[Rfam]
RNA sequence: UCCACCACCCGUUCGACACAAUACUCUGCAGCAGUAUUGUGUGACCUGCAGUGUCAACGGCUGGUGGA
Dot-bracket structure: (((((((.(((((......((((((.......))))))....(((.......)))))))).)))))))
A member of the RNA family "bZIP non canonical Hac1/Xbp1 intron" from Cryphonectria parasitica, 68 nucleotides long.
By type it is a small RNA.
Pairs were carried over by alignment from the consensus structure, which was predicted with RNAfold.
NCBI's taxonomy places the organism under Eukaryota, Opisthokonta, Pezizomycotina, Diaporthales, Cryphonectria parasitica.
bZIP intron RNA is a non-canonical intron that was first reported in HAC1 gene in yeast and XBP1 gene in Metazoa.